[Rfam]
A member of the RNA family "Small nucleolar RNA psi18S-1377" from Drosophila kikkawai, 146 nucleotides long.
RNA sequence: CCGUUCUUGUGUUAUUUGCUGGUUGUUUUUUUAUAAACCAGCGAUUGUCAAACAGAACGCAUAGUAAGCAAAGGCAGCUAAAUCACUCCACAAUGUUGAGCCGUCAUUAACCAGGGCUGCUGCAUUACUAAAUGCUUGCCACAUUU
Numbered sequence: 001c002c003g004u005u006c007u008u009g010u011g012u013u014a015u016u017u018g019c020u021g022g023u024u025g026u027u028u029u030u031u032u033a034u035a036a037a038c039c040a041g042c043g044a045u046u047g048u049c050a051a052a053c054a055g056a057a058c059g060c061a062u063a064g065u066a067a068g069c070a071a072a073g074g075c076a077g078c079u080a081a082a083u084c085a086c087u088c089c090a091c092a093a094u095g096u097u098g099a100g101c102c103g104u105c106a107u108u109a110a111c112c113a114g115g116g117c118u119g120c121u122g123c124a125u126u127a128c129u130a131a132a133u134g135c136u137u138g139c140c141a142c143a144u145u146u
Stems, first nucleotide, its partner, number of pairs: 002059006010050002016044007092126005099118004
Record summary
Its family is annotated with nucleolus and RNA processing in the Gene Ontology. The base pairs follow the family's consensus structure, which was predicted with RNAalifold. By type it is an H/ACA-box small nucleolar RNA. Rfam's curators write: psi18S-1377 is a member of the H/ACA class of snoRNA. This family is responsible for guiding the modification of uridines 1377 and 1279 to pseudouridine in Drosophila 18S rRNA. Taxonomically the source falls in Sophophora (Eukaryota, Insecta, Pterygota, Aparaglossata).